[Rfam]
RNA sequence: GAAAAAUCGAAGAUCGAGACGAGUAGGCAGGGAUAUCCAUUUAGAGAGUCAGCGGCUGGUGGAAGCUGAUUGGAUUACUUGCGCGAAUGGACUUAGGAGAGCUGGCCUGAAAGCGGAAGCGAGUAAGGGAGACGUACGCCCUGCGUUAAAGGGAAAGGCGAAGAGCCUGUUUAAGUGAGUGCAAAAAUGCACUAAUGCGUGGUGGUACCGCGGUUUUACCCCGUCCCCGCA
Numbered sequence: 001g002a003a004a005a006a007u008c009g010a011a012g013a014u015c016g017a018g019a020c021g022a023g024u025a026g027g028c029a030g031g032g033a034u035a036u037c038c039a040u041u042u043a044g045a046g047a048g049u050c051a052g053c054g055g056c057u058g059g060u061g062g063a064a065g066c067u068g069a070u071u072g073g074a075u076u077a078c079u080u081g082c083g084c085g086a087a088u089g090g091a092c093u094u095a096g097g098a099g100a101g102c103u104g105g106c107c108u109g110a111a112a113g114c115g116g117a118a119g120c121g122a123g124u125a126a127g128g129g130a131g132a133c134g135u136a137c138g139c140c141c142u143g144c145g146u147u148a149a150a151g152g153g154a155a156a157g158g159c160g161a162a163g164a165g166c167c168u169g170u171u172u173a174a175g176u177g178a179g180u181g182c183a184a185a186a187a188u189g190c191a192c193u194a195a196u197g198c199g200u201g202g203u204g205g206u207a208c209c210g211c212g213g214u215u216u217u218a219c220c221c222c223g224u225c226c227c228c229g230c231a
Stems, first nucleotide, its partner, number of pairs: 007100002016094003026084001027082005037073003048070006102131002106128003133145003178193006199228001201226002210224004
The family of this 231-nucleotide RNA from Planomicrobium sp. CPCC 101110 is "T-box leader".
Rfam describes the family as follows. Uncharged tRNA acts as the effector for transcription antitermination of genes in the T-box leader family. T-boxes are found upstream of many aminoacyl-tRNA synthetase genes and some amino acid biosynthetic genes usually in Gram-positive bacteria. The anticodon of a specific tRNA base pairs to a specifier sequence within the T-box motif, and the NCCA acceptor tail of the tRNA base pairs to a conserved bulge in the T-box antiterminator hairpin.
It is annotated as a cis-regulatory leader.